[Rfam]
RNA sequence: GGCCGCUGAUGUAGAUCAAUAUUUGCUACUCUUGAUAGGAUCCUCAAUGAUCCCAUCUGAUGAUUCUUAUCCACCAAGAUCUCUGAGGCC
Numbered sequence: 001g002g003c004c005g006c007u008g009a010u011g012u013a014g015a016u017c018a019a020u021a022u023u024u025g026c027u028a029c030u031c032u033u034g035a036u037a038g039g040a041u042c043c044u045c046a047a048u049g050a051u052c053c054c055a056u057c058u059g060a061u062g063a064u065u066c067u068u069a070u071c072c073a074c075c076a077a078g079a080u081c082u083c084u085g086a087g088g089c090c
Stems, first nucleotide, its partner, number of pairs: 001090004
Shown here is a 90-nucleotide RNA sequence from Prunus armeniaca, a member of the family "Small nucleolar RNA SNORD24". The literature on the family includes a 1995 paper in Nucleic Acids Res by Qu et al., "U24, a novel intron-encoded small nucleolar RNA with two 12 nt long, phylogenetically conserved complementarities to 28S rRNA". The family's consensus secondary structure was predicted with PFOLD. A search with the family's covariance model found it, with a score of 56 bits. It is annotated as a C/D-box small nucleolar RNA.